[Rfam]
The record is a 140-nucleotide sequence from Xenopus tropicalis, which matches "U4 spliceosomal RNA" in Rfam. Pairs were carried over by alignment from the consensus structure, which is taken from published work. It scores 116 bits against the family's covariance model. Rfam classes the family as a spliceosomal small nuclear RNA. Its Rfam clan is "U4 clan".
RNA sequence: AGCUUUGCGCAGUGGCAGUAUCAUAGCCAAUGAGGUCAAACCGAGGCGUGAUUAUUGCUAAUUGAAAACUUUUCCAAUAUCCCCGCGUGAUGACUUGAAAUAUAGUCAGCACUGGCAAUUUUUGACAGUCUCUCAGGAGA
Numbered sequence: 001a002g003c004u005u006u007g008c009g010c011a012g013u014g015g016c017a018g019u020a021u022c023a024u025a026g027c028c029a030a031u032g033a034g035g036u037c038a039a040a041c042c043g044a045g046g047c048g049u050g051a052u053u054a055u056u057g058c059u060a061a062u063u064g065a066a067a068a069c070u071u072u073u074c075c076a077a078u079a080u081c082c083c084c085g086c087g088u089g090a091u092g093a094c095u096u097g098a099a100a101u102a103u104a105g106u107c108a109g110c111a112c113u114g115g116c117a118a119u120u121u122u123u124g125a126c127a128g129u130c131u132c133u134c135a136g137g138a139g140a
Base pairs, nucleotide, nucleotide: 020052021051022050023049024048026047027046028045034042035041036040085116086115087112088111089110091108092107093106094105095104129140130139131138132137